[Rfam]
RNA sequence: UGUCCGAUGCCACGUCUGCGAUAGCUUUUGGCAUUGAUCGUCGAUGCUACAUUGGACAUAAACAGAUGUUUGUGUUUCGCUUUUCUGAUAGGAACCUGUGGAUCUUGAGUCUAUUGUGGUCUACGGAGCCAUUUAGGCGAUUACAUUU
Numbered sequence: 001u002g003u004c005c006g007a008u009g010c011c012a013c014g015u016c017u018g019c020g021a022u023a024g025c026u027u028u029u030g031g032c033a034u035u036g037a038u039c040g041u042c043g044a045u046g047c048u049a050c051a052u053u054g055g056a057c058a059u060a061a062a063c064a065g066a067u068g069u070u071u072g073u074g075u076u077u078c079g080c081u082u083u084u085c086u087g088a089u090a091g092g093a094a095c096c097u098g099u100g101g102a103u104c105u106u107g108a109g110u111c112u113a114u115u116g117u118g119g120u121c122u123a124c125g126g127a128g129c130c131a132u133u134u135a136g137g138c139g140a141u142u143a144c145a146u147u148u
Base pairs, nucleotide, nucleotide: 002057003056004055005054006053007052008051009050013046014045015044016043018041020039021038022037024032025031026030077140078139079138080137081136091130092129096126097125098124100122101121102120103119104118
RNA: Small nucleolar RNA snoR2/U65
Organism: Brassica carinata